[Rfam]
A member of the RNA family "SAM riboswitch aptamer (S box leader)" from a Gemmatimonadota bacterium, 121 nucleotides long. A search with the family's covariance model found it, with a score of 71 bits. Rfam's curators write: The SAM riboswitch is found upstream of a number of genes which code for proteins involved in methionine or cysteine biosynthesis in Gram-positive bacteria. The SAM riboswitch acts at the level of transcription termination control. Taxonomically the source falls in Gemmatimonadota (Bacteria, Pseudomonadati).
RNA sequence: CGCUUAUCGAGACCGGCUGAGGGAUGGGCCCUUUGACGCCGGGGCAACCACCAGGUCCCCAGGACCGCGGAUGGUGCCAAAUCCCACGGAGAACCAUUGCCGGUUCUGCGAGAGAUGAGCC
Numbered sequence: 001c002g003c004u005u006a007u008c009g010a011g012a013c014c015g016g017c018u019g020a021g022g023g024a025u026g027g028g029c030c031c032u033u034u035g036a037c038g039c040c041g042g043g044g045c046a047a048c049c050a051c052c053a054g055g056u057c058c059c060c061a062g063g064a065c066c067g068c069g070g071a072u073g074g075u076g077c078c079a080a081a082u083c084c085c086a087c088g089g090a091g092a093a094c095c096a097u098u099g100c101c102g103g104u105u106c107u108g109c110g111a112g113a114g115a116u117g118a119g120c121c
Stems, first nucleotide, its partner, number of pairs: 002120007013042005021031003025086004043078004048074002051070002082113001087110002090107006